Rfam assigns this 135-nucleotide RNA sequence from Geotrypetes seraphini to the family "Small nucleolar RNA SNORA51". The organism belongs to Geotrypetes, within Eukaryota. The family's consensus secondary structure was predicted with PFOLD. Gene Ontology terms of the family: RNA processing and nucleolus. Rfam's curators write: ACA51 is a member of the H/ACA class of snoRNA that guide the sites of modification of uridines to pseudouridines. The match comes from Rfam's covariance-model search (67 bits).

RNA sequence: UCCCUCCCAAUGCUUACCACAGGCAGUGUGUCCCUACACUGACUGUAUAGAAAGAGGAGGAAAAGCAUCUAUCCCUGUUUACACCGCAACUGAGAAAGUGAUGACUCAGACUGUAACGUCAUCAGGGAAACAUAC
Numbered sequence: 001u002c003c004c005u006c007c008c009a010a011u012g013c014u015u016a017c018c019a020c021a022g023g024c025a026g027u028g029u030g031u032c033c034c035u036a037c038a039c040u041g042a043c044u045g046u047a048u049a050g051a052a053a054g055a056g057g058a059g060g061a062a063a064a065g066c067a068u069c070u071a072u073c074c075c076u077g078u079u080u081a082c083a084c085c086g087c088a089a090c091u092g093a094g095a096a097a098g099u100g101a102u103g104a105c106u107c108a109g110a111c112u113g114u115a116a117c118g119u120c121a122u123c124a125g126g127g128a129a130a131c132a133u134a135c
Stems, first nucleotide, its partner, number of pairs: 003060005020045003028039004073127005087113002090109005